Shown here is an 82-nucleotide RNA sequence from Nannospalax galili, a member of the family "mir-3473 microRNA precursor family". Rfam 15.1 lists 1,094 matches to the family in 20 species. It scores 74 bits against the family's covariance model. Lineage of the source: Eukaryota > Eumetazoa > Theria > Boreoeutheria > Nannospalax. The family's consensus secondary structure was predicted with RNAalifold.
[Rfam]
RNA sequence: ACUGCUGAGCCAUCUCUCCAGCCCUCAAAACGAUUUUUAAAAAAAGUGCAUUUAGUAGGGGCUGGAGAGAUGGCUCAGUGGU
Numbered sequence: 001a002c003u004g005c006u007g008a009g010c011c012a013u014c015u016c017u018c019c020a021g022c023c024c025u026c027a028a029a030a031c032g033a034u035u036u037u038u039a040a041a042a043a044a045a046g047u048g049c050a051u052u053u054a055g056u057a058g059g060g061g062c063u064g065g066a067g068a069g070a071u072g073g074c075u076c077a078g079u080g081g082u
Base pairs, nucleotide, nucleotide: 002081003080004079005078006077007076008075009074010073011072012071013070014069015068016067017066018065019064020063021062022061023060024059